U1 spliceosomal RNA: a 164-nucleotide RNA sequence from Camelus dromedarius.
The family's RNA type in Rfam is spliceosomal small nuclear RNA.
About the family: U1 is a small nuclear RNA (snRNA) component of the spliceosome (involved in pre-mRNA splicing). Its 5' end forms complementary base pairs with the 5' splice junction, thus defining the 5' donor site of an intron. There are significant differences in sequence and secondary structure between metazoan and yeast U1 snRNAs, the latter being much longer (568 nucleotides as compared to 164 nucleotides in human).
Taxonomically the source falls in Camelus (Eukaryota, Deuterostomia, Sarcopterygii, Boreoeutheria).
[Rfam]
RNA sequence: AGGCUUACCUGGCAGGGGAGACACCAUGAUGGCCAAGGUGGUUUUCCCAGGGCGAGGCUCAUCCAUUGCACCCCGGAUGUGCUGAGCCCUGCAGUUUCCCCAAGCUGGGGACUCUCAAGUGCAUGAUUUGCGGUAGUAAGGGACUGCGUUUGUACUUUCCUCUC
Numbered sequence: 001a002g003g004c005u006u007a008c009c010u011g012g013c014a015g016g017g018g019a020g021a022c023a024c025c026a027u028g029a030u031g032g033c034c035a036a037g038g039u040g041g042u043u044u045u046c047c048c049a050g051g052g053c054g055a056g057g058c059u060c061a062u063c064c065a066u067u068g069c070a071c072c073c074c075g076g077a078u079g080u081g082c083u084g085a086g087c088c089c090u091g092c093a094g095u096u097u098c099c100c101c102a103a104g105c106u107g108g109g110g111a112c113u114c115u116c117a118a119g120u121g122c123a124u125g126a127u128u129u130g131c132g133g134u135a136g137u138a139a140g141g142g143a144c145u146g147c148g149u150u151u152g153u154a155c156u157u158u159c160c161u162c163u164c
Base pairs, nucleotide, nucleotide: 012122013121014120016048017047018046019045020044021043023042024041025040026039027038049090050089051088052087056083057082058081060079061078062077063076064075094115096111097110099108100107138163140161141160142159143158146155148153